[Rfam]
RNA sequence: UGAGGUUGCGAUGAGGAUAAAUAAGCUCCCUCUUCUGAACUGUAAAGUUGAGGAAAAAUGCUGGCAGAAUCGAACCUAUAACUUACUUAUGCCACCACUGAGUAG
Numbered sequence: 001u002g003a004g005g006u007u008g009c010g011a012u013g014a015g016g017a018u019a020a021a022u023a024a025g026c027u028c029c030c031u032c033u034u035c036u037g038a039a040c041u042g043u044a045a046a047g048u049u050g051a052g053g054a055a056a057a058a059u060g061c062u063g064g065c066a067g068a069a070u071c072g073a074a075c076c077u078a079u080a081a082c083u084u085a086c087u088u089a090u091g092c093c094a095c096c097a098c099u100g101a102g103u104a105g
Base pairs, nucleotide, nucleotide: 006105007104008103009102

Description: The family of this 105-nucleotide sequence from Camellia sinensis is "Small nucleolar RNA R30/Z108". Pairs were carried over by alignment from the consensus structure, which was predicted with PFOLD. The source organism's lineage runs through Eukaryota, Streptophyta, Gunneridae, Theaceae and Camellia. About the family: snoR30 is a C/D box small nucleolar RNA which acts as a methylation guide for 18S ribosomal RNA in plants. Clan: SNORD100 clan. Rfam classes the family as a C/D-box small nucleolar RNA. The literature on the family includes a 2002 paper in Curr Biol by Marker et al., "Experimental RNomics. Identification of 140 Candidates for Small Non-Messenger RNAs in the Plant Arabidopsis thaliana".